[Rfam]
RNA sequence: AGUGCAGGAUUGUGUGUAUCGGUGUUUUGCUUGCUUACAGCGUGCAUUGCUCGCCGAAAGUGUUUCCUGCUACAGUAAUUAAUUUGGGGAAGAUGGGCAGUUGGGUUCUAUAUCAUUUGUUGGAAAUCCCAACAAUCAUUUUCCCUAAAUUU
Numbered sequence: 001a002g003u004g005c006a007g008g009a010u011u012g013u014g015u016g017u018a019u020c021g022g023u024g025u026u027u028u029g030c031u032u033g034c035u036u037a038c039a040g041c042g043u044g045c046a047u048u049g050c051u052c053g054c055c056g057a058a059a060g061u062g063u064u065u066c067c068u069g070c071u072a073c074a075g076u077a078a079u080u081a082a083u084u085u086g087g088g089g090a091a092g093a094u095g096g097g098c099a100g101u102u103g104g105g106u107u108c109u110a111u112a113u114c115a116u117u118u119g120u121u122g123g124a125a126a127u128c129c130c131a132a133c134a135a136u137c138a139u140u141u142u143c144c145c146u147a148a149a150u151u152u
Stems, first nucleotide, its partner, number of pairs: 004070005009064001014047006086146011100133004
RNA: small nucleolar RNA snoR135
Organism: Asparagus officinalis